RNA: Bacteroides-1 RNA
Nucleotides: 081
Base pairs, nucleotide, nucleotide: 019048022045023044024043025042028039029038030037031036053071054070055069056068057067058066059065
Number, partner (000 for none) and nucleotide at each position: 001000u002000u003000g004000c005000a006000a007000g008000u009000c010000a011000a012000c013000c014000u015000g016000a017000a018000c019048u020000a021000a022045u023044u024043a025042u026000u027000u028039g029038u030037a031036u032000g033000u034000g035000a036031a037030u038029a039028u040000u041000u042025a043024u044023g045022a046000u047000g048019g049000u050000u051000a052000c053071u054070u055069a056068u057067g058066c059065c060000u061000c062000c063000c064000c065059g066058g067057c068056a069055u070054a071053a072000a073000c074000a075000g076000g077000u078000a079000a080000g081000a